Description:
ZMP/ZTP riboswitch aptamer (pfl RNA motif): an 81-nucleotide RNA sequence from Sinosporangium album. Lineage of the source: Bacteria > Bacillati > Actinomycetota > Streptosporangiales > Sinosporangium. Pairs were carried over by alignment from the consensus structure, which is taken from published work.
RNA sequence: CGUCUAGGACGCGACCGGCGCAUCGAGGUGGGGCACCACCGGGGAGCUGAGACGCGGGGACCGAGCGCCUGGGUCCUCGCG
Number, nucleotide and partner (000 for none) at each position: 001c000002g000003u050004c049005u000006a000007g000008g000009a000010c000011g047012c046013g000014a000015c043016c042017g069018g068019c067020g066021c065022a000023u000024c000025g000026a000027g000028g039029u038030g037031g036032g000033g000034c000035a000036c031037c030038a029039c028040c000041g000042g016043g015044g000045a000046g012047c011048u000049g004050a003051g000052a000053c000054g000055c000056g000057g000058g076059g075060a074061c073062c072063g000064a000065g021066c020067g019068c018069c017070u000071g000072g062073g061074u060075c059076c058077u000078c000079g000080c000081g000